[Rfam]
RNA: 23S methyl RNA motif
Organism: Streptococcus urinalis
RNA sequence: CAUUCGUUAGUUUAAAUCAAACCUGUUAUGAUUUAAGGUUGCGAAUCACCGCUAACCACAUUGUUUGCUGAGCUAGACUCCGAGCAGUGUGGUUUUUAU
Numbered sequence: 001c002a003u004u005c006g007u008u009a010g011u012u013u014a015a016a017u018c019a020a021a022c023c024u025g026u027u028a029u030g031a032u033u034u035a036a037g038g039u040u041g042c043g044a045a046u047c048a049c050c051g052c053u054a055a056c057c058a059c060a061u062u063g064u065u066u067g068c069u070g071a072g073c074u075a076g077a078c079u080c081c082g083a084g085c086a087g088u089g090u091g092g093u094u095u096u097u098a099u
Base pairs, nucleotide, nucleotide: 002046003045004044005043006042007041009039011037012036013035014034015033016032017031018030019029054094055093056092057091058090059089060088061087062086063085064084065083066082067081070080071079072078